RNA: TPP riboswitch aptamer (THI element)
Organism: Novosphingobium sp. ST904
RNA sequence: GCCCUAUCCCCGGGGGGCCGCUUAUGCGCGGCUGAGAGGUGGUCUGCAGACCACGACCCGCUGAACCUGAUCCGGUUGACACCGGCGUAGGGAGGGCUGGCGGCAGGUCC
Numbered sequence: 001g002c003c004c005u006a007u008c009c010c011c012g013g014g015g016g017g018c019c020g021c022u023u024a025u026g027c028g029c030g031g032c033u034g035a036g037a038g039g040u041g042g043u044c045u046g047c048a049g050a051c052c053a054c055g056a057c058c059c060g061c062u063g064a065a066c067c068u069g070a071u072c073c074g075g076u077u078g079a080c081a082c083c084g085g086c087g088u089a090g091g092g093a094g095g096g097c098u099g100g101c102g103g104c105a106g107g108u109c110c
Stems, first nucleotide, its partner, number of pairs: 006098001008096003011060004016054001017032005040053005066091004072085004